This 152-nucleotide sequence from Camellia sinensis belongs to the Rfam family "Small nucleolar RNA snoR145".
The match comes from Rfam's covariance-model search (113 bits).
The organism belongs to Camellia sinensis, within Eukaryota.
For this family Rfam cites "Mining small RNA sequencing data: a new approach to identify small nucleolar RNAs in Arabidopsis" (Chen and Wu, Nucleic Acids Res, 2009).
The family has 19 seed sequences and 286 matches in Rfam 15.1.
[Rfam]
RNA sequence: CAGCGAAGGUCCCAGCAGAGAGGGUAAAGACUCUAGAACGAGACCUCUCUAACAGUUGAAACACAUUCCUUCGCAAAGUGAUUUGCCGAAUCGUAGGAUGCUCCAAUUGAUUUUUUGGUUUUGGUGCGUCUUGAACCCUCGGCUACAUUUCU
Numbered sequence: 001c002a003g004c005g006a007a008g009g010u011c012c013c014a015g016c017a018g019a020g021a022g023g024g025u026a027a028a029g030a031c032u033c034u035a036g037a038a039c040g041a042g043a044c045c046u047c048u049c050u051a052a053c054a055g056u057u058g059a060a061a062c063a064c065a066u067u068c069c070u071u072c073g074c075a076a077a078g079u080g081a082u083u084u085g086c087c088g089a090a091u092c093g094u095a096g097g098a099u100g101c102u103c104c105a106a107u108u109g110a111u112u113u114u115u116u117g118g119u120u121u122u123g124g125u126g127c128g129u130c131u132u133g134a135a136c137c138c139u140c141g142g143c144u145a146c147a148u149u150u151c152u
Stems, first nucleotide, its partner, number of pairs: 003074007011020001013018001022049003031042003085143005097130002100127002103124004
Dot-bracket structure: ..(((((((.(.(....).).(((......(((......)))....)))..................)))))))..........(((((.......((.((.((((..............)))).)).))........))))).........